[Rfam]
RNA sequence: GUAGAUGCUCAUUCCAUUUCUUAUGUUCGCCUUAGGCUUCAUAAACCCUGGGAAUGACGCAGAGCCGAUUUAGGGUGCCUAUCGCCCACGAGAACGAUGACUAACCCGUCAUCACGCUCAGGGCAAAACGUUGAGUGAGGCACCGCCCCUGUUGUCCUAGACCUGAUUGCUUCUUUAUACACUUGCCAUGCGGCAAGUGUUUUUUU
Numbered sequence: 001g002u003a004g005a006u007g008c009u010c011a012u013u014c015c016a017u018u019u020c021u022u023a024u025g026u027u028c029g030c031c032u033u034a035g036g037c038u039u040c041a042u043a044a045a046c047c048c049u050g051g052g053a054a055u056g057a058c059g060c061a062g063a064g065c066c067g068a069u070u071u072a073g074g075g076u077g078c079c080u081a082u083c084g085c086c087c088a089c090g091a092g093a094a095c096g097a098u099g100a101c102u103a104a105c106c107c108g109u110c111a112u113c114a115c116g117c118u119c120a121g122g123g124c125a126a127a128a129c130g131u132u133g134a135g136u137g138a139g140g141c142a143c144c145g146c147c148c149c150u151g152u153u154g155u156c157c158u159a160g161a162c163c164u165g166a167u168u169g170c171u172u173c174u175u176u177a178u179a180c181a182c183u184u185g186c187c188a189u190g191c192g193g194c195a196a197g198u199g200u201u202u203u204u205u206u
Stems, first nucleotide, its partner, number of pairs: 001065002006061003009057004015052001017051001019043001027036001074144007084124004096113004154162003179200009
GlmZ RNA activator of glmS mRNA: a 206-nucleotide RNA sequence. The family's consensus secondary structure is taken from published work. For this family Rfam cites "Structure of a bacterial ribonucleoprotein complex central to the control of cell envelope biogenesis" (Islam et al., EMBO J, 2023). A search with the family's covariance model found it, with a score of 169 bits. This RNA was discovered in E. coli during a large scale screen. The sraJ gene was expressed in early logarithmic phase, but its level decreased with cell growth. Specific cleavage products of this RNA were found. Identified in Yersinia pseudotuberculosis as Ysr248/153/sR016. The family's RNA type in Rfam is small RNA.